This 150-nucleotide sequence from Hypoxylon sp. CO27-5 belongs to the Rfam family "Small nucleolar RNA snR80". The source organism's lineage runs through Eukaryota, Fungi, Dikarya, Pezizomycotina and Hypoxylon. Its family is annotated with RNA processing and nucleolus in the Gene Ontology. The base pairs follow the family's consensus structure, which was predicted with WAR.

RNA sequence: AUAUCCUUGCCUACACUCUGAGAUAAACCAGCUCACCAUGGCUUAUUUCAAUUUUUGUGUCAAGGGAGAUUGGAAUGAGACCAACUACUCACCGCGACCUUCUUAAUAUGCCAAAAAUGGAGGUUGAGGUCCAUCUUGCUAGGUCGACAU
Number, nucleotide and partner (000 for none) at each position: 001a000002u000003a000004u000005c000006c000007u063008u062009g061010c000011c000012u000013a000014c000015a000016c000017u000018c000019u050020g049021a048022g047023a046024u045025a000026a043027a000028c041029c040030a000031g000032c000033u000034c000035a000036c000037c000038a000039u000040g029041g028042c000043u026044u000045a024046u023047u022048u021049c020050a019051a000052u000053u000054u000055u000056u000057g000058u000059g000060u000061c009062a008063a007064g000065g000066g000067a000068g000069a000070u000071u000072g000073g000074a000075a000076u000077g000078a000079g145080a144081c143082c142083a000084a000085c000086u000087a000088c000089u000090c000091a000092c129093c128094g000095c126096g000097a124098c123099c122100u000101u121102c120103u119104u000105a000106a000107u000108a000109u000110g000111c000112c000113a000114a000115a000116a000117a000118u000119g103120g102121a101122g099123g098124u097125u000126g095127a000128g093129g092130u000131c000132c000133a000134u000135c000136u000137u000138g000139c000140u000141a000142g082143g081144u080145c079146g000147a000148c000149a000150u000